[Rfam]
RNA sequence: AUUAAAAUAAAAAAGUUUACUCAUAUAUUUUGGUAAUAUGGUCCAAAAGUUUCUACGUCCUAACCUUAAAUCAGGACGCUAUGGGAAGAGCUUAUACUAUA
Numbered sequence: 001a002u003u004a005a006a007a008u009a010a011a012a013a014a015g016u017u018u019a020c021u022c023a024u025a026u027a028u029u030u031u032g033g034u035a036a037u038a039u040g041g042u043c044c045a046a047a048a049g050u051u052u053c054u055a056c057g058u059c060c061u062a063a064c065c066u067u068a069a070a071u072c073a074g075g076a077c078g079c080u081a082u083g084g085g086a087a088g089a090g091c092u093u094a095u096a097c098u099a100u101a
Stems, first nucleotide, its partner, number of pairs: 018087001020085006029047005057077005063071001